Source information:
Group II catalytic intron D1-D4-3: a 172-nucleotide RNA sequence from Arachidicoccus ginsenosidivorans. The source organism's lineage runs through Bacteria, Pseudomonadati, Chitinophagia, Chitinophagaceae and Arachidicoccus.

RNA sequence: UCCCAGGCAACUGGGAAUCUGAAGGAAGGCGAAGACAAAACGCUGGCCUGACACACAGGAACCGUAUCUGAGGCUACAUAUCUGGAUGAUGAGGCGAAUAACUCUAAAGUCCUAUACUUACACGGAAAGGUAUGUGGUAUAUGCGGCAGGCAUAAGCGUGAAAGAAGUGCAU
Numbered sequence: 001u002c003c004c005a006g007g008c009a010a011c012u013g014g015g016a017a018u019c020u021g022a023a024g025g026a027a028g029g030c031g032a033a034g035a036c037a038a039a040a041c042g043c044u045g046g047c048c049u050g051a052c053a054c055a056c057a058g059g060a061a062c063c064g065u066a067u068c069u070g071a072g073g074c075u076a077c078a079u080a081u082c083u084g085g086a087u088g089a090u091g092a093g094g095c096g097a098a099u100a101a102c103u104c105u106a107a108a109g110u111c112c113u114a115u116a117c118u119u120a121c122a123c124g125g126a127a128a129g130g131u132a133u134g135u136g137g138u139a140u141a142u143g144c145g146g147c148a149g150g151c152a153u154a155a156g157c158g159u160g161a162a163a164g165a166a167g168u169g170c171a172u
Base pairs, nucleotide, nucleotide: 001016002015003014004013005012006011028172032168036164040159041158042157043156044155046151047150048149049148050147062146063145064144065143066142067141073138074137075136077134078133079132080131081130082129083128084112085111086110087109091104092103093102